[Rfam]
RNA sequence: GCGCGGCCUACGCCGAGUCCGGCGCGCCCCACCAGGCACACCCGGAGCCGGGGACCCAAUGACCUUGGGGUGAAUCGGACCGUACAGCCCCGUGCGGACCGUAGGGCAGCCCUUCCGAACCACCCGCCCGAACCCGACAGCUAACCCGGUAGGCGGUCAACGGAAGGAGC
Numbered sequence: 001g002c003g004c005g006g007c008c009u010a011c012g013c014c015g016a017g018u019c020c021g022g023c024g025c026g027c028c029c030c031a032c033c034a035g036g037c038a039c040a041c042c043c044g045g046a047g048c049c050g051g052g053g054a055c056c057c058a059a060u061g062a063c064c065u066u067g068g069g070g071u072g073a074a075u076c077g078g079a080c081c082g083u084a085c086a087g088c089c090c091c092g093u094g095c096g097g098a099c100c101g102u103a104g105g106g107c108a109g110c111c112c113u114u115c116c117g118a119a120c121c122a123c124c125c126g127c128c129c130g131a132a133c134c135c136g137a138c139a140g141c142u143a144a145c146c147c148g149g150u151a152g153g154c155g156g157u158c159a160a161c162g163g164a165a166g167g168a169g170c
Stems, first nucleotide, its partner, number of pairs: 011155004018046005047150006057067002068135003076101003104129004
RNA: c-di-AMP riboswitch aptamer (ydaO/yuaA leader)
Organism: Streptomyces sp. YIM 130001